[Rfam]
RNA sequence: GGGGGCGACCAGGCUUCGACGUGGAUCCUGAAACCCGAGACGCAUGUCGAGCCGGCAACGAAGGCUCGUAAAUCCAUCAGUUGCAAACAGAUAGUUGCAAACGAUAGUAAUUAUCUCCAAGAAGCUUACGCAUAAAGCUUCUUCCGUUGCUGGGAUUCGCUUAUAGAUCCCUACCAACGGCCAUAGCAUAUAAGCUCGCCCUCAAGCAUGGCUCAUGACUUGAAGGUUAAACAGAAGAGCUCGCAGUCAAUUUCCCCUGCACGUCGGGCGAUUGACUGUUAAAUCAUAGACGAUGCUAAGCAUGUAGUGUCAACGGCGGAUGAUUUACGGACGCGGGUUCAAUUCCCGCCGCCUCCAUCA
Number, nucleotide and partner (000 for none) at each position: 001g356002g355003g354004g353005g352006c351007g350008a000009c000010c000011a000012g000013g000014c000015u000016u000017c000018g000019a000020c329021g328022u327023g326024g325025a324026u323027c322028c000029u320030g000031a000032a000033a000034c000035c316036c315037g314038a000039g311040a310041c309042g000043c304044a303045u302046g301047u300048c068049g067050a066051g065052c064053c000054g000055g084056c083057a082058a081059c080060g000061a000062a000063g000064g052065c051066u050067c049068g048069u000070a000071a000072a000073u000074c000075c000076a000077u000078c000079a000080g059081u058082u057083g056084c055085a000086a000087a000088c000089a000090g000091a000092u000093a000094g000095u000096u000097g000098c000099a000100a000101a000102c000103g000104a000105u000106a000107g000108u000109a000110a000111u000112u000113a000114u000115c000116u000117c000118c000119a143120a142121g141122a140123a139124g138125c137126u136127u135128a000129c000130g000131c000132a000133u000134a000135a127136a126137g125138c124139u123140u122141c121142u120143u119144c180145c179146g178147u177148u176149g175150c000151u000152g171153g170154g169155a168156u000157u000158c000159g195160c194161u193162u192163a191164u190165a189166g000167a000168u155169c154170c153171c152172u000173a000174c000175c149176a148177a147178c146179g145180g144181c000182c000183a000184u000185a000186g000187c000188a000189u165190a164191u163192a162193a161194g160195c159196u229197c000198g227199c226200c225201c000202u223203c222204a221205a000206g000207c000208a000209u000210g241211g240212c239213u238214c237215a000216u000217g000218a000219c000220u000221u204222g203223a202224a000225g200226g199227u198228u000229a196230a000231a000232c000233a000234g000235a000236a000237g214238a213239g212240c211241u210242c000243g000244c278245a277246g276247u275248c274249a273250a272251u271252u270253u000254c000255c268256c267257c266258u000259g296260c295261a294262c000263g291264u290265c289266g257267g256268g255269c000270g252271a251272u250273u249274g248275a247276c246277u245278g244279u000280u000281a000282a000283a000284u000285c000286a000287u000288a000289g265290a264291c263292g000293a000294u261295g260296c259297u000298a000299a000300g047301c046302a045303u044304g043305u000306a000307g000308u000309g041310u040311c039312a000313a000314c037315g036316g035317c000318g000319g000320a029321u000322g027323a026324u025325u024326u023327a022328c021329g020330g000331a000332c000333g349334c348335g347336g346337g345338u000339u000340c000341a000342a000343u000344u000345c337346c336347c335348g334349c333350c007351g006352c005353c004354u003355c002356c001357a000358u000359c000360a000
Shown here is a 360-nucleotide RNA from Coxiella burnetii, a member of the family "transfer-messenger RNA". Taxonomically the source falls in Coxiella burnetii (Bacteria, Pseudomonadati, Legionellales, Coxiellaceae). A reference for the family is Felden et al. (1997), "Probing the structure of the Escherichia coli 10Sa RNA (tmRNA)", RNA. Pairs were carried over by alignment from the consensus structure, which is taken from published work. The sequence is in the family's curated seed alignment.